RNA sequence: UGGCCUGAAAUGAUGUUCUGAGUUCAUGUCUCUUCUCUGAGAUGCGUUGUGGAGACAGCCAGAUGCAUUUCUGAUCAGGCUU
Number, nucleotide and partner (000 for none) at each position: 001u000002g081003g080004c079005c078006u000007g000008a000009a000010a000011u000012g000013a000014u000015g000016u000017u000018c000019u000020g000021a000022g000023u000024u000025c000026a000027u000028g000029u000030c000031u000032c000033u000034u000035c000036u000037c000038u000039g000040a000041g000042a000043u000044g000045c000046g000047u000048u000049g000050u000051g000052g000053a000054g000055a000056c000057a000058g000059c000060c000061a000062g000063a000064u000065g000066c000067a000068u000069u000070u000071c000072u000073g000074a000075u000076c000077a000078g005079g004080c003081u002082u000
RNA: Small nucleolar RNA SNORD111
Organism: Struthidea cinerea